[Rfam]
RNA: Plastid-rps12 3UTR RNA
Organism: Myriophyllum spicatum
RNA sequence: GGUUCCCAUUGGUGCAAAUCCAAUCAUCUUAAUUUAAGCUGAGCAGCAAUUCUCCAUUGGUAACAAACGGGUAUCCAUUAAGCGGGGAAAAUACUA
Numbered sequence: 001g002g003u004u005c006c007c008a009u010u011g012g013u014g015c016a017a018a019u020c021c022a023a024u025c026a027u028c029u030u031a032a033u034u035u036a037a038g039c040u041g042a043g044c045a046g047c048a049a050u051u052c053u054c055c056a057u058u059g060g061u062a063a064c065a066a067a068c069g070g071g072u073a074u075c076c077a078u079u080a081a082g083c084g085g086g087g088a089a090a091a092u093a094c095u096a
Stems, first nucleotide, its partner, number of pairs: 009023004052087004056078002059075004064070001
Dot-bracket structure: ........((((.......))))............................((((((.((((.(.....).)))).)).....)))).........